[Rfam]
RNA: TPP riboswitch aptamer (THI element)
RNA sequence: ACGUAAAGCUAGGGGUCCUGUCGAUGUUGACGGGUGAGAAAUACCCUUGAACCUGAUCUGGGUAAUGCCAGCGAAGGGAAGCGCCGGAAAGAGCUU
Numbered sequence: 001a002c003g004u005a006a007a008g009c010u011a012g013g014g015g016u017c018c019u020g021u022c023g024a025u026g027u028u029g030a031c032g033g034g035u036g037a038g039a040a041a042u043a044c045c046c047u048u049g050a051a052c053c054u055g056a057u058c059u060g061g062g063u064a065a066u067g068c069c070a071g072c073g074a075a076g077g078g079a080a081g082c083g084c085c086g087g088a089a090a091g092a093g094c095u096u
Stems, first nucleotide, its partner, number of pairs: 008082003011047004016041001017034005052077003058071004
Dot-bracket structure: .......(((((((.((((((........)))))......)..))))....(((...((((......))))...)))..)))..............